[Rfam]
RNA sequence: CAUUGAAGGGAUGAGAAAGUUUUCGGAAAAACCAUGUCGAUCGAAAAUACUUCCAGACUACAAUUAUCUGAUCAAUG
Numbered sequence: 001c002a003u004u005g006a007a008g009g010g011a012u013g014a015g016a017a018a019g020u021u022u023u024c025g026g027a028a029a030a031a032c033c034a035u036g037u038c039g040a041u042c043g044a045a046a047a048u049a050c051u052u053c054c055a056g057a058c059u060a061c062a063a064u065u066a067u068c069u070g071a072u073c074a075a076u077g
Base pairs, nucleotide, nucleotide: 001077002076003075004074005073006072